[Rfam]
RNA sequence: AUAAUUAAUGGCGAUGGAGCUCGCCAAAACCGCUAUUCCAGUGAAAAGAUUGCAUCUGGAAGGCUGAUGGCUCCUACUUUCCU
Number, nucleotide and partner (000 for none) at each position: 001a000002u000003a000004a000005u000006u000007a000008a000009u000010g025011g024012c023013g022014a000015u000016g074017g073018a072019g071020c070021u069022c013023g012024c011025c010026a000027a000028a000029a000030c000031c000032g064033c063034u062035a000036u000037u000038c000039c000040a000041g000042u000043g000044a000045a000046a000047a000048g000049a000050u000051u000052g000053c000054a000055u000056c000057u000058g000059g000060a000061a000062g034063g033064c032065u000066g000067a000068u000069g021070g020071c019072u018073c017074c016075u000076a000077c000078u000079u000080u000081c000082c000083u000

Fluoride riboswitch aptamer (crcB RNA motif): an 83-nucleotide RNA from Nostoc sp. PCC 7524. Pairs were carried over by alignment from the consensus structure, which is taken from published work. A search with the family's covariance model found it, with a score of 48 bits. NCBI's taxonomy places the organism under Bacteria, Cyanobacteriota, Nostocales, Nostocaceae, Nostoc.